[Rfam]
RNA sequence: GGGUGCCCAGGCGCGGGAGCGUCGGGGCAGGUUGUCGCGAAGGUCGGGCCGCCUCG
Numbered sequence: 001g002g003g004u005g006c007c008c009a010g011g012c013g014c015g016g017g018a019g020c021g022u023c024g025g026g027g028c029a030g031g032u033u034g035u036c037g038c039g040a041a042g043g044u045c046g047g048g049c050c051g052c053c054u055c056g
Stems, first nucleotide, its partner, number of pairs: 005028004010023003038056003042053003

Rfam assigns this 56-nucleotide RNA sequence from Sphaerotilus mobilis to the family "nhaA-I RNA". Rfam describes the family as follows. Acidobacteria, Alphaproteobacteria, Betaproteobacteria and Gammaproteobacteria, Verrucomicrobia, cand. division NC10. The organism belongs to Sphaerotilus, within Bacteria.